Overview
A member of the RNA family "c-di-GMP-I riboswitch aptamer" from Paenibacillus whitsoniae, 89 nucleotides long. GEMM was predicted in a large-scale screen for bacterial structured RNA regulatory elements. Genes associated with GEMM are involved in a diverse array of functions, including chemotaxis regulation, signal transduction, secretion and chitin. The organism belongs to Paenibacillus, within Bacteria. A search with the family's covariance model found it, with a score of 73 bits.

RNA sequence: UCACGAUAAAGGCAAAUGACGCGAAAGCGGCAGACGCAAAGCUACAGGGGCUAACCGGCGAGGACGCCGUAUGCCUGCCAGCUACCGCA
Numbered sequence: 001u002c003a004c005g006a007u008a009a010a011g012g013c014a015a016a017u018g019a020c021g022c023g024a025a026a027g028c029g030g031c032a033g034a035c036g037c038a039a040a041g042c043u044a045c046a047g048g049g050g051c052u053a054a055c056c057g058g059c060g061a062g063g064a065c066g067c068c069g070u071a072u073g074c075c076u077g078c079c080a081g082c083u084a085c086c087g088c089a
Stems, first nucleotide, its partner, number of pairs: 012037002017032002020029003040083004047079002049075003056069004